[Rfam]
RNA sequence: GUUGCUUCUUAUGGUGAACGCCCUGUAAAUUUCGAUUGGUUGGGGAUGUUCAAGUUUCCGAAGCAUAGAUUAAAAAUCACACCAGUAUUAAACAGCACCGUGCGUUUUGCACUGUGCUACCUGUCUCCUGGUACAAAU
Numbered sequence: 001g002u003u004g005c006u007u008c009u010u011a012u013g014g015u016g017a018a019c020g021c022c023c024u025g026u027a028a029a030u031u032u033c034g035a036u037u038g039g040u041u042g043g044g045g046a047u048g049u050u051c052a053a054g055u056u057u058c059c060g061a062a063g064c065a066u067a068g069a070u071u072a073a074a075a076a077u078c079a080c081a082c083c084a085g086u087a088u089u090a091a092a093c094a095g096c097a098c099c100g101u102g103c104g105u106u107u108u109g110c111a112c113u114g115u116g117c118u119a120c121c122u123g124u125c126u127c128c129u130g131g132u133a134c135a136a137a138u
Stems, first nucleotide, its partner, number of pairs: 003065006015052005021045004081132005087126001094118003098114001100112003